[Rfam]
RNA: Purine riboswitch aptamer
Organism: Furfurilactobacillus siliginis
RNA sequence: GUUAAUAAAAGUUGAAAAGCUUAUAUAGGGCCAUAAUAUGGAUGGCUGUCUCUACCCGAACCCGUAAAGUUUGGACUAUAAGCAAAAUUAGCCGUCAU
Numbered sequence: 001g002u003u004a005a006u007a008a009a010a011g012u013u014g015a016a017a018a019g020c021u022u023a024u025a026u027a028g029g030g031c032c033a034u035a036a037u038a039u040g041g042a043u044g045g046c047u048g049u050c051u052c053u054a055c056c057c058g059a060a061c062c063c064g065u066a067a068a069g070u071u072u073g074g075a076c077u078a079u080a081a082g083c084a085a086a087a088u089u090a091g092c093c094g095u096c097a098u
Stems, first nucleotide, its partner, number of pairs: 019083007029047005056074006